[Rfam]
RNA sequence: AAUCCCUAUGAUGACUAUUAUGAUUAAAAAUGUUAAAAGUAGUGACUGAUCUUGAUGAAACUUUCAGCUCUGAGGGAUU
Numbered sequence: 001a002a003u004c005c006c007u008a009u010g011a012u013g014a015c016u017a018u019u020a021u022g023a024u025u026a027a028a029a030a031u032g033u034u035a036a037a038a039g040u041a042g043u044g045a046c047u048g049a050u051c052u053u054g055a056u057g058a059a060a061c062u063u064u065c066a067g068c069u070c071u072g073a074g075g076g077a078u079u
Stems, first nucleotide, its partner, number of pairs: 001079006
RNA: Small nucleolar RNA R21